[Rfam]
RNA sequence: UUGGCAGCUAAUCUUUUUUUACUCAAUCGCAGAACUAAAACUGCGUAAGUGGCGAAGUGUUUCAAGAAACAUUUGGUGCUGCUUAUGUGACUGAACAAGUGUGUUCAGUCUGCAAAACACAUAAGGUAAACAAAUUUAGGCAAGAACUGAUAGGAAAGCACUCCUGUCAGUUUUUU
Numbered sequence: 001u002u003g004g005c006a007g008c009u010a011a012u013c014u015u016u017u018u019u020u021a022c023u024c025a026a027u028c029g030c031a032g033a034a035c036u037a038a039a040a041c042u043g044c045g046u047a048a049g050u051g052g053c054g055a056a057g058u059g060u061u062u063c064a065a066g067a068a069a070c071a072u073u074u075g076g077u078g079c080u081g082c083u084u085a086u087g088u089g090a091c092u093g094a095a096c097a098a099g100u101g102u103g104u105u106c107a108g109u110c111u112g113c114a115a116a117a118c119a120c121a122u123a124a125g126g127u128a129a130a131c132a133a134a135u136u137u138a139g140g141c142a143a144g145a146a147c148u149g150a151u152a153g154g155a156a157a158g159c160a161c162u163c164c165u166g167u168c169a170g171u172u173u174u175u176u
Stems, first nucleotide, its partner, number of pairs: 001056002004053002007050001028045005035139005057120006069088004075082001076161005089110008143174013
RNA: FuFi-1 RNA